[Rfam]
RNA sequence: UUGGUAUAGCAGGUGAUUGCUCAAUUUUUGAGAGGAAAGUCCGAGCUACAGAGACAGGAUUCCAUUUAACAAAUGGCUAGCGUAAGCUAAGGGAAAGUGCAACAGAAAAUAACCGCCAUUGUCUCAAUGGUAAGGGUGAAAAGGUGAGGUAAGAGCUUACCGAAGCAAAAGUAAUUGAGCUUGACAAUGUAAACCCAAUCCGUAGCAAAAAGAGUAUGGUUAGCGUCUCAAAUACAAAACUCUUUGCUUGAGCCUUAUUGUGAAAUAAAGCCUAGAUAAAUAAUCACCCAACGACAGAACUCGGCUUAUCGCUAUGCCAAAAAA
Numbered sequence: 001u002u003g004g005u006a007u008a009g010c011a012g013g014u015g016a017u018u019g020c021u022c023a024a025u026u027u028u029u030g031a032g033a034g035g036a037a038a039g040u041c042c043g044a045g046c047u048a049c050a051g052a053g054a055c056a057g058g059a060u061u062c063c064a065u066u067u068a069a070c071a072a073a074u075g076g077c078u079a080g081c082g083u084a085a086g087c088u089a090a091g092g093g094a095a096a097g098u099g100c101a102a103c104a105g106a107a108a109a110u111a112a113c114c115g116c117c118a119u120u121g122u123c124u125c126a127a128u129g130g131u132a133a134g135g136g137u138g139a140a141a142a143g144g145u146g147a148g149g150u151a152a153g154a155g156c157u158u159a160c161c162g163a164a165g166c167a168a169a170a171g172u173a174a175u176u177g178a179g180c181u182u183g184a185c186a187a188u189g190u191a192a193a194c195c196c197a198a199u200c201c202g203u204a205g206c207a208a209a210a211a212g213a214g215u216a217u218g219g220u221u222a223g224c225g226u227c228u229c230a231a232a233u234a235c236a237a238a239a240c241u242c243u244u245u246g247c248u249u250g251a252g253c254c255u256u257a258u259u260g261u262g263a264a265a266u267a268a269a270g271c272c273u274a275g276a277u278a279a280a281u282a283a284u285c286a287c288c289c290a291a292c293g294a295c296a297g298a299a300c301u302c303g304g305c306u307u308a309u310c311g312c313u314a315u316g317c318c319a320a321a322a323a324a
Base pairs, nucleotide, nucleotide: 001320002319003318004317005316006315007314008313009312010311011309012288013287014286015285016284017283018282020032021031022030023029024028037307038306039305041304042303043302044301045300046205047204048203049202057201058200059199060198061197062076063075064074065073066072077091078089079088080087081086092196093195097194098193099190100189101188113135114134115131116130117129118128119127120126121125143161144160145159146158147157148156162185163182164181165180166179169176170175209245210244211243212242213241214240215239217237223235225233226232252271253270255268256267257266258265259264
Dot-bracket structure: ((((((((((((((((((.(((((...)))))....[[[.[[[[[((((.......((((((((((.....)))))(((((....)))).)((...(((((...........(((((((((...)))))))..)).......((((((.......))))))(((((..((....))..))))..)..)))..)))))))))))))...(((((((.(.....(.((.....)).).).)))))))......((.(((((....))))).))..........)))))))...........]]]]]]]].).))))))))))....